[Rfam]
RNA sequence: GCUGGUGUAGCUCAGUGGUUACUUCAAAAACUUUCUCUAUCAGAAAUGUUCUGUACCUCUGCAAAGGGGUUCGAGCCAUGGUCGCUGUCAAAAGUUUUG
Numbered sequence: 001g002c003u004g005g006u007g008u009a010g011c012u013c014a015g016u017g018g019u020u021a022c023u024u025c026a027a028a029a030a031c032u033u034u035c036u037c038u039a040u041c042a043g044a045a046a047u048g049u050u051c052u053g054u055a056c057c058u059c060u061g062c063a064a065a066g067g068g069g070u071u072c073g074a075g076c077c078a079u080g081g082u083c084g085c086u087g088u089c090a091a092a093a094g095u096u097u098u099g
Stems, first nucleotide, its partner, number of pairs: 002094002004089001010083001012081002015079004023075003027071001
Shown here is a 99-nucleotide RNA sequence from Oncorhynchus kisutch, a member of the family "Vault RNA". The family's RNA type in Rfam is non-coding RNA gene.